[Rfam]
RNA sequence: AAGAGAAGAGAUGGCAAGAUGUUGGCAUAGCUGUUAAUGUUUAUGGGCCUGCUAUGCCUCCAUAUUGCCAUUUCUGCACUUC
Dot-bracket structure: ....(.(((((((((((.(((..((((((((...................))))))))..))).))))))))))).).....
RNA: mir-31 microRNA precursor family
Organism: Danio rerio